[Rfam]
This 77-nucleotide RNA from Alligator mississippiensis belongs to the Rfam family "Mammalian CPEB3 ribozyme". The organism belongs to Alligator, within Eukaryota. It scores 39 bits against the family's covariance model.
RNA sequence: GGAAGCAAGUUUGAGGCCAUAGCAGAAGUGCUCAUGGCACAGCCCUGACUGAUGCCAAUGAGUUUGUGAAUUCCGCU
Numbered sequence: 001g002g003a004a005g006c007a008a009g010u011u012u013g014a015g016g017c018c019a020u021a022g023c024a025g026a027a028g029u030g031c032u033c034a035u036g037g038c039a040c041a042g043c044c045c046u047g048a049c050u051g052a053u054g055c056c057a058a059u060g061a062g063u064u065u066g067u068g069a070a071u072u073c074c075g076c077u
Base pairs, nucleotide, nucleotide: 013045015044016043017042021077022076023075025073026072027071028040029039030038049066051064052063053062055060